[Rfam]
RNA sequence: CAUUGUUUGUACUAUGCUUAACUGUUGUGAACCAUACCUGUGAGUUCUAGGCGGUUCACAACAGUUAAGCAUAGUACAAACAAUGC
Numbered sequence: 001c002a003u004u005g006u007u008u009g010u011a012c013u014a015u016g017c018u019u020a021a022c023u024g025u026u027g028u029g030a031a032c033c034a035u036a037c038c039u040g041u042g043a044g045u046u047c048u049a050g051g052c053g054g055u056u057c058a059c060a061a062c063a064g065u066u067a068a069g070c071a072u073a074g075u076a077c078a079a080a081c082a083a084u085g086c
Base pairs, nucleotide, nucleotide: 003083004082005081006080007079008078009077010076011075012074015071016070017069018068019067020066021065022064023063025061026060027059029057030056031055032054033053